[Rfam]
About this RNA:
Rfam assigns this 51-nucleotide sequence to the family "6A RNA". By type it is a small RNA. The sequence is in the family's curated seed alignment.
RNA sequence: UGAUGUGAUUGUAGAGCGCAAUCACGUUAAUCAAAAGAAGGCUCGAUCGGU
Numbered sequence: 001u002g003a004u005g006u007g008a009u010u011g012u013a014g015a016g017c018g019c020a021a022u023c024a025c026g027u028u029a030a031u032c033a034a035a036a037g038a039a040g041g042c043u044c045g046a047u048c049g050g051u
Base pairs, nucleotide, nucleotide: 006024007023008022009021010020011019014044015043016042017041